[Rfam]
Collinsella-1 RNA: a 183-nucleotide sequence.
Pairs were carried over by alignment from the consensus structure, which is taken from published work.
RNA sequence: CGCCGCCGCACGGUGCCUUCGGGCACCCUUGGUGGCAGGCGUAAAAAAACGGUGGAGCGGCUGCAAAAGAGCCGCCCCACCGGGUAAAAUCAGAAAUGAAAGAAGCGGACCCCGCGCAGGUGGCUAACCGGUUACGCGGGCGAUGCGGAUUUCAGGUUCAAAGGCCGGGGCUGCAACCCCGGC
Dot-bracket structure: (((((((((..((((((....))))))....))))).))))........((((((.((((((.......)))))).))))))...................((((((...(((((..((............))..)))))...)))...)))...........(((((((......)))))))